[Rfam]
RNA sequence: ACGCCCCUGCCGGAGCGGCGCCUAGGGGGCCGGAACUCCGGCCCCGGGUGCCCGCCGGCGAAUGGUCUUCCGAACCGAGGCGUCAUG
Numbered sequence: 001a002c003g004c005c006c007c008u009g010c011c012g013g014a015g016c017g018g019c020g021c022c023u024a025g026g027g028g029g030c031c032g033g034a035a036c037u038c039c040g041g042c043c044c045c046g047g048g049u050g051c052c053c054g055c056c057g058g059c060g061a062a063u064g065g066u067c068u069u070c071c072g073a074a075c076c077g078a079g080g081c082g083u084c085a086u087g
Base pairs, nucleotide, nucleotide: 001083002082003081004080005079010058011057012056013055015053017052018051019050020049021048025045026044028043029042030041031040032039033038063077064076065075
Description:
A member of the RNA family "dauA ncRNA motif" from Streptomyces sp. NRRL F-5140, 87 nucleotides long. Rfam's curators write: dauA ncRNA motif was reported as a strong cis regulatory motif candidate, with potential to be a cis regulatory riboswitch type, it have been identified in genomes of the genus Streptomyces. On this family, see Narunsky et al., Nucleic Acids Res 2024: "The discovery of novel noncoding RNAs in 50 bacterial genomes". The sequence is in the family's curated seed alignment. By type it is a cis-regulatory element.